[Rfam]
RNA sequence: AUAUCAUCCGGUACGGGAAGGAUGAGGACCUUCGACUAAGGUUCGACUUGAGCGAUAGCGAGAGAACGUUGCGCAGCAACGGCCCGAAGGGUGAGGAACGAAGUGACGAAUAAUCCUUCCCCCCUGUA
Dot-bracket structure: ..............(((((((.(.........((.((....((((...((........))......((((((...))))))...)))).))))...................).))))))).......
Numbered sequence: 001a002u003a004u005c006a007u008c009c010g011g012u013a014c015g016g017g018a019a020g021g022a023u024g025a026g027g028a029c030c031u032u033c034g035a036c037u038a039a040g041g042u043u044c045g046a047c048u049u050g051a052g053c054g055a056u057a058g059c060g061a062g063a064g065a066a067c068g069u070u071g072c073g074c075a076g077c078a079a080c081g082g083c084c085c086g087a088a089g090g091g092u093g094a095g096g097a098a099c100g101a102a103g104u105g106a107c108g109a110a111u112a113a114u115c116c117u118u119c120c121c122c123c124c125u126g127u128a
Stems, first nucleotide, its partner, number of pairs: 015121007023113001033093002036091002042088004049060002067081006
Shown here is a 128-nucleotide sequence from Shimwellia blattae, a member of the family "RtT RNA". Rfam links the family to the GO term cellular response to amino acid starvation. It scores 111 bits against the family's covariance model. A reference for the family is Bosl and Kersten (1991), "A novel RNA product of the tyrT operon of Escherichia coli", Nucleic Acids Res. This family represents a bacterial cis-regulatory element known as RtT RNA. The exact function of RtT is unknown although it is thought that it may be involved in changing the cellular response in relation to amino acid starvation.